Shown here is a 108-nucleotide RNA sequence from Polaromonas sp. CG9_12, a member of the family "Guanidine-I riboswitch aptamer".
Lineage of the source: Bacteria > Pseudomonadati > Betaproteobacteria > Comamonadaceae > Polaromonas.
A reference for the family is Reiss et al. (2017), "Structural Basis for Ligand Binding to the Guanidine-I Riboswitch", Structure.
About the family: This family represents a conserved RNA structure found upstream of the ykkC and yxkD genes in Bacillus subtilis and related genes in other bacteria.

RNA sequence: UUGCUAGACCGCUAGGGUUCCGGGUUCCAUGACGAAUGGCGCUGUCUGGUCCGAGAGCUGUCGGCCGCAGUCGCUGCGGCUCCACGGAGGGACAAAAGCCCGGGAGGA
Numbered sequence: 001u002u003g004c005u006a007g008a009c010c011g012c013u014a015g016g017g018u019u020c021c022g023g024g025u026u027c028c029a030u031g032a033c034g035a036a037u038g039g040c041g042c043u044g045u046c047u048g049g050u051c052c053g054a055g056a057g058c059u060g061u062c063g064g065c066c067g068c069a070g071u072c073g074c075u076g077c078g079g080c081u082c083c084a085c086g087g088a089g090g091g092a093c094a095a096a097a098g099c100c101c102g103g104g105a106g107g108a
Stems, first nucleotide, its partner, number of pairs: 007062003011058002015052002020049002022046001023043003027039004063081008083103001085106001089101003